pemK RNA: a 116-nucleotide RNA. Rfam's curators put it in the seed alignment.
RNA sequence: AUAAUGAUACUCCUGUCCGGCCAUAAAGUCGAGCGUUGAAACGGUGUGUGACCGUGAGCCGUCGCAACAAGUGGGGGCAGCUUCGUGAAAAAUGCGGAGGGGUGAGAUUCCCGUGA
Numbered sequence: 001a002u003a004a005u006g007a008u009a010c011u012c013c014u015g016u017c018c019g020g021c022c023a024u025a026a027a028g029u030c031g032a033g034c035g036u037u038g039a040a041a042c043g044g045u046g047u048g049u050g051a052c053c054g055u056g057a058g059c060c061g062u063c064g065c066a067a068c069a070a071g072u073g074g075g076g077g078c079a080g081c082u083u084c085g086u087g088a089a090a091a092a093u094g095c096g097g098a099g100g101g102g103u104g105a106g107a108u109u110c111c112c113g114u115g116a
Stems, first nucleotide, its partner, number of pairs: 012113001013080006081099003085095003100112003